[Rfam]
RNA sequence: GCUACCCCUCCUAUACCUGGUAGAGAAAGGAGGCGUAUUAUAUGGACAUGUUUAUGUCUCUAAUUAUCACUAUUAUGGCUGAGAUAGUUUCAUACUAUAUCUGCAAAUGGCUGGAUAGAGAUAAUCACAGGUAGCCAGCCUGGGGACUAAGCCACCCUUCCACAACGGCAUAGAAAACCCCACGAGCCACCAACUCGUGGGGUUUUCGUUCAUUAUAU
Numbered sequence: 001g002c003u004a005c006c007c008c009u010c011c012u013a014u015a016c017c018u019g020g021u022a023g024a025g026a027a028a029g030g031a032g033g034c035g036u037a038u039u040a041u042a043u044g045g046a047c048a049u050g051u052u053u054a055u056g057u058c059u060c061u062a063a064u065u066a067u068c069a070c071u072a073u074u075a076u077g078g079c080u081g082a083g084a085u086a087g088u089u090u091c092a093u094a095c096u097a098u099a100u101c102u103g104c105a106a107a108u109g110g111c112u113g114g115a116u117a118g119a120g121a122u123a124a125u126c127a128c129a130g131g132u133a134g135c136c137a138g139c140c141u142g143g144g145g146a147c148u149a150a151g152c153c154a155c156c157c158u159u160c161c162a163c164a165a166c167g168g169c170a171u172a173g174a175a176a177a178c179c180c181c182a183c184g185a186g187c188c189a190c191c192a193a194c195u196c197g198u199g200g201g202g203u204u205u206u207c208g209u210u211c212a213u214u215a216u217a218u
Stems, first nucleotide, its partner, number of pairs: 005030002009026002012023001016020001032161002035157001043062004047056002076154005083147001085103003090099001109140006116133002122129001164214002168211001169208001175205012

Rfam assigns this 218-nucleotide RNA sequence from Lachnospira eligens to the family "Streptococcus sRNA SpF66".
Rfam 15.1 lists 46 matches to the family in 45 species.
By type it is a small RNA.